Rfam assigns this 263-nucleotide RNA from Anaerostipes butyraticus to the family "Bacterial large signal recognition particle RNA". NCBI's taxonomy places the organism under Bacteria, Bacillati, Bacillota, Lachnospiraceae, Anaerostipes. From the family's description: The signal recognition particle (SRP) is a universally conserved ribonucleoprotein involved in the co-translational targeting of proteins to membranes. A search with the family's covariance model found it, with a score of 181 bits. The family is grouped with related families in Rfam's "SRP clan".

RNA sequence: CCGUGCAGCCGGGGAGGUAGCGGCACCCUUUUUCUGCAAUCCGCUAUAGCAGAGGUCAUGGUUUGUUUCGGGUUUUCUUCUGUAGAGCUGCCCUUUAUAAGUGGCGUUGAUAUCUGGGUCUCACGCAAUAGGAAUCUGUGAACCGUGUCAGGUCGGGAACGAAGCAGCACUAAGCAGAACCUUCUAUGUGCCGUGAGGGUGCCUGGGUUGAGUUAACUGUAGAGGUAACGUCUGUGGAAGGAGACACAACGCAGACCGCACGG
Numbered sequence: 001c002c003g004u005g006c007a008g009c010c011g012g013g014g015a016g017g018u019a020g021c022g023g024c025a026c027c028c029u030u031u032u033u034c035u036g037c038a039a040u041c042c043g044c045u046a047u048a049g050c051a052g053a054g055g056u057c058a059u060g061g062u063u064u065g066u067u068u069c070g071g072g073u074u075u076u077c078u079u080c081u082g083u084a085g086a087g088c089u090g091c092c093c094u095u096u097a098u099a100a101g102u103g104g105c106g107u108u109g110a111u112a113u114c115u116g117g118g119u120c121u122c123a124c125g126c127a128a129u130a131g132g133a134a135u136c137u138g139u140g141a142a143c144c145g146u147g148u149c150a151g152g153u154c155g156g157g158a159a160c161g162a163a164g165c166a167g168c169a170c171u172a173a174g175c176a177g178a179a180c181c182u183u184c185u186a187u188g189u190g191c192c193g194u195g196a197g198g199g200u201g202c203c204u205g206g207g208u209u210g211a212g213u214u215a216a217c218u219g220u221a222g223a224g225g226u227a228a229c230g231u232c233u234g235u236g237g238a239a240g241g242a243g244a245c246a247c248a249a250c251g252c253a254g255a256c257c258g259c260a261c262g263g
Base pairs, nucleotide, nucleotide: 001263002262003261004260005259006258008056009055010054011029012028013027014026016024018022033053034052035051036050037049061256062255063254064253065252066251070247072245073244074243077240078239079238080237081236082235083234084233085232086231089227090226093224094223095222096221097220098219101217102216103214104213105212112208113207114206115205116204117203118202119201120197121196122195123194124193125192126188127187129186130185131184132183133182135178136177137176138175139174145170146169147168148167153162154161155160